[Rfam]
RNA sequence: UGGUAGAUGCACCCUGAUGAUUCACCCCUGGCUUUACGGCUGGGGGCUUUUUAU
Numbered sequence: 001u002g003g004u005a006g007a008u009g010c011a012c013c014c015u016g017a018u019g020a021u022u023c024a025c026c027c028c029u030g031g032c033u034u035u036a037c038g039g040c041u042g043g044g045g046g047c048u049u050u051u052u053a054u
Stems, first nucleotide, its partner, number of pairs: 002013003025046009
RNA: Nitrogen stress-induced RNA 1